This 183-nucleotide RNA sequence from Dulcicalothrix desertica belongs to the Rfam family "6S / SsrS RNA". Taxonomically the source falls in Dulcicalothrix desertica (Bacteria, Cyanobacteriota, Cyanophyceae, Dulcicalothrix). The family's consensus secondary structure is taken from published work.
RNA sequence: GUUGUACUGCAACGUUGGUGACUGCCAUCAAGUUUUUUGAUCUAUGUCUUUAAGAAUUAGGGAACCAAUUAUUGUUCGUGGCAGUAGACCGAGCUUGUACUCGGAAACUUUAAACGAAACACAAGGCUCCCACCUGGUUAUACCAGGUCAUAAACUUAGGUAAAACGGCGUCGCGGUAUGACA
Dot-bracket structure: .(((((((((.((((..((..............(((.((((((................(((..((........(((((....((...(((((......)))))..)).....)))))......))..))).............)))))).)))..........)).)))).)))))))))..

By type it is a non-coding RNA gene.
A search with the family's covariance model found it, with a score of 104 bits.